[Rfam]
The family of this 57-nucleotide sequence from Hydrogenophaga sp. BPS33 is "nhaA-I RNA". A search with the family's covariance model found it, with a score of 44 bits. Rfam describes the family as follows. Acidobacteria, Alphaproteobacteria, Betaproteobacteria and Gammaproteobacteria, Verrucomicrobia, cand. division NC10.
RNA sequence: GGGUGUUCUUGCGGCAAGGUGCCGUGAACAGGUUCAAGCGCUGGUCGGGCCGCCGCG
Numbered sequence: 001g002g003g004u005g006u007u008c009u010u011g012c013g014g015c016a017a018g019g020u021g022c023c024g025u026g027a028a029c030a031g032g033u034u035c036a037a038g039c040g041c042u043g044g045u046c047g048g049g050c051c052g053c054c055g056c057g
Stems, first nucleotide, its partner, number of pairs: 005029004010024002039057003043054003
Dot-bracket structure: ....((((.((...........)).)))).........(((.(((......))))))
Background
The source organism's lineage runs through Bacteria, Pseudomonadati, Betaproteobacteria, Burkholderiales and Hydrogenophaga.